Notes
c-di-AMP riboswitch aptamer (ydaO/yuaA leader): a 140-nucleotide RNA from Aneurinibacillus migulanus. Its family is annotated with cyclic-di-AMP binding and regulation of gene expression in the Gene Ontology.
RNA sequence: AAAAAUAAAAUGCCAAAUCCAAUUGAUGAAAAAAUUGGAACGGGGGAACCGAGCAUUUGGGGUGAAUUCGCAUAUUAUGCGGUCGGGCGCCUUUCAACCGAACCCGUCAGCUAACCUCGUCGGCAGAGAAGAAAGGGAGA
Numbered sequence: 001a002a003a004a005a006u007a008a009a010a011u012g013c014c015a016a017a018u019c020c021a022a023u024u025g026a027u028g029a030a031a032a033a034a035u036u037g038g039a040a041c042g043g044g045g046g047a048a049c050c051g052a053g054c055a056u057u058u059g060g061g062g063u064g065a066a067u068u069c070g071c072a073u074a075u076u077a078u079g080c081g082g083u084c085g086g087g088c089g090c091c092u093u094u095c096a097a098c099c100g101a102a103c104c105c106g107u108c109a110g111c112u113a114a115c116c117u118c119g120u121c122g123g124c125a126g127a128g129a130a131g132a133a134a135g136g137g138a139g140a
Stems, first nucleotide, its partner, number of pairs: 011125004018039007040120006050059002060105003068082004085099002